[Rfam]
RNA sequence: GACAUAAUUAAAUAAUUUGCUCAUAUAAUUCCUGAAUAUGGAGGGAAGUUUCUACCAGAUAACCGUAAAUUGUCUGACUAUGAGUGGAAUCCUACUUAAU
Numbered sequence: 001g002a003c004a005u006a007a008u009u010a011a012a013u014a015a016u017u018u019g020c021u022c023a024u025a026u027a028a029u030u031c032c033u034g035a036a037u038a039u040g041g042a043g044g045g046a047a048g049u050u051u052c053u054a055c056c057a058g059a060u061a062a063c064c065g066u067a068a069a070u071u072g073u074c075u076g077a078c079u080a081u082g083a084g085u086g087g088a089a090u091c092c093u094a095c096u097u098a099a100u
Base pairs, nucleotide, nucleotide: 018086019085020084021083022082023081024080025079029047030046031045032044033043056076057075058074059073060072061071062070
This 100-nucleotide RNA from Clostridium botulinum belongs to the Rfam family "Purine riboswitch aptamer". The source organism's lineage runs through Bacteria, Clostridia, Eubacteriales, Clostridium and Clostridium botulinum. Pairs were carried over by alignment from the consensus structure, which is taken from published work.